[Rfam]
RNA: L31-Firmicutes ribosomal protein leader
RNA sequence: CUUUAAACCAGCUCAUGGUUUAAGGCGGAAGGAG
Numbered sequence: 001c002u003u004u005a006a007a008c009c010a011g012c013u014c015a016u017g018g019u020u021u022a023a024g025g026c027g028g029a030a031g032g033a034g
Base pairs, nucleotide, nucleotide: 001025002024003023004022005021006020007019008018009017010016